[Rfam]
RNA: mir-3431 microRNA precursor family
Organism: Bos taurus
RNA sequence: AUGAAUGCGAAAACCUCAGUCAGCCUUGUGGAUGUAUGUUCUGCAGACCUGACAUCUAGAGGACUGACUGAAAUUUUCACUUUCAG
Numbered sequence: 001a002u003g004a005a006u007g008c009g010a011a012a013a014c015c016u017c018a019g020u021c022a023g024c025c026u027u028g029u030g031g032a033u034g035u036a037u038g039u040u041c042u043g044c045a046g047a048c049c050u051g052a053c054a055u056c057u058a059g060a061g062g063a064c065u066g067a068c069u070g071a072a073a074u075u076u077u078c079a080c081u082u083u084c085a086g
Stems, first nucleotide, its partner, number of pairs: 002085004007080001009078005016071008024062004029058007038049001040047002